RNA: Cyano-1 RNA
RNA sequence: GAAAGUGUGAGGAGUGCGAAAGGCUUCUGGGGUCGAAACACGGAAAGACUCCCAGAAGCCUUUUUGU
Number, nucleotide and partner (000 for none) at each position: 001g000002a000003a000004a000005g000006u000007g000008u000009g000010a000011g000012g000013a000014g000015u000016g000017c000018g000019a000020a062021a061022g060023g059024c058025u000026u000027c055028u054029g053030g052031g051032g049033u048034c047035g000036a000037a000038a000039c000040a000041c000042g000043g000044a000045a000046a000047g034048a033049c032050u000051c031052c030053c029054a028055g027056a000057a000058g024059c023060c022061u021062u020063u000064u000065u000066g000067u000